[Rfam]
RNA sequence: AAGACUAUACUUUUAGGGAUCACUUCUAUAGUUUGUCACUAGAGAAGUUUCUCUCAACAUAGAAUCCCGGAAGCCAUAAGGAGGAAGUACAGUGUCCUUUCCUGAGCAUGAAGCUGGCUCUGGGUGUUGCUUCUGCAGCUGCCCUUUGCCAGUGAUGAUCUUUCUUCCCUCUGUUGGAAGAACAAGAAGGAAGGUAAACCAUCUCGGCGGG
Numbered sequence: 001a002a003g004a005c006u007a008u009a010c011u012u013u014u015a016g017g018g019a020u021c022a023c024u025u026c027u028a029u030a031g032u033u034u035g036u037c038a039c040u041a042g043a044g045a046a047g048u049u050u051c052u053c054u055c056a057a058c059a060u061a062g063a064a065u066c067c068c069g070g071a072a073g074c075c076a077u078a079a080g081g082a083g084g085a086a087g088u089a090c091a092g093u094g095u096c097c098u099u100u101c102c103u104g105a106g107c108a109u110g111a112a113g114c115u116g117g118c119u120c121u122g123g124g125u126g127u128u129g130c131u132u133c134u135g136c137a138g139c140u141g142c143c144c145u146u147u148g149c150c151a152g153u154g155a156u157g158a159u160c161u162u163u164c165u166u167c168c169c170u171c172u173g174u175u176g177g178a179a180g181a182a183c184a185a186g187a188a189g190g191a192a193g194g195u196a197a198a199c200c201a202u203c204u205c206g207g208c209g210g211g
Stems, first nucleotide, its partner, number of pairs: 002040002006035002009032003014028005050064001053062002074210002077207001092199002095196001097194007106160001116150003122144004126139005161184001162182007
Rfam assigns this 211-nucleotide sequence from Ailuropoda melanoleuca to the family "Small nucleolar RNA U3". Gene Ontology terms of the family: RNA processing and nucleolus. A search with the family's covariance model found it, with a score of 124 bits. Taxonomically the source falls in Ailuropoda (Eukaryota, Teleostomi, Sarcopterygii, Carnivora). Rfam's curators write: Small nucleolar RNAs (snoRNAs) are involved in the processing and modification of rRNA in the nucleolus. There are two main classes of snoRNAs: the box C/D class, and the box H/ACA class. U3 snoRNA is a member of the box C/D class. Indeed, the box C/D element is a subset of the six short sequence elements found in all U3 snoRNAs, namely boxes A, A', B, C, C', and D. The U3 snoRNA secondary structure is characterised by a small 5' domain (with boxes A and A'), and a larger 3' domain (with boxes B, C, C', and D), the two domains being linked by a single-stranded hinge. Its Rfam clan is "U3 clan".